[Rfam]
RNA sequence: GUUAUUCCUUAUCUAUCUAGUACGUUGAUUUGUCUGGAACCUGUCCCAUUGCGCUUUCGUGGGAAAACGCAAUAAGACAGGUUCUGCGUUUAGUUGCCGCGCUCUCAAUGGCG
Numbered sequence: 001g002u003u004a005u006u007c008c009u010u011a012u013c014u015a016u017c018u019a020g021u022a023c024g025u026u027g028a029u030u031u032g033u034c035u036g037g038a039a040c041c042u043g044u045c046c047c048a049u050u051g052c053g054c055u056u057u058c059g060u061g062g063g064a065a066a067a068c069g070c071a072a073u074a075a076g077a078c079a080g081g082u083u084c085u086g087c088g089u090u091u092a093g094u095u096g097c098c099g100c101g102c103u104c105u106c107a108a109u110g111g112c113g
Stems, first nucleotide, its partner, number of pairs: 001098001003096002022089004036085010048073005055066004
Description
tp2: a 113-nucleotide sequence from Kluyvera genomosp. 3. The family's consensus secondary structure was predicted with RNAalifold. For this family Rfam cites "A survey of small RNA-encoding genes in Escherichia coli" (Hershberg et al., Nucleic Acids Res, 2003).